[Rfam]
RNA sequence: GCUUUUUUUUCCCCCUUUGACUUGCUGGCGUUACAUACAGAGAAGCCUGCAGUCUUUUAAGGUGGGAAAAGGC
Numbered sequence: 001g002c003u004u005u006u007u008u009u010u011c012c013c014c015c016u017u018u019g020a021c022u023u024g025c026u027g028g029c030g031u032u033a034c035a036u037a038c039a040g041a042g043a044a045g046c047c048u049g050c051a052g053u054c055u056u057u058u059a060a061g062g063u064g065g066g067a068a069a070a071g072g073c
Stems, first nucleotide, its partner, number of pairs: 001073004009067004014062004023051002027047003030038002
Rfam assigns this 73-nucleotide sequence from Aquarana catesbeiana to the family "MAT2A 3'UTR stem loop A".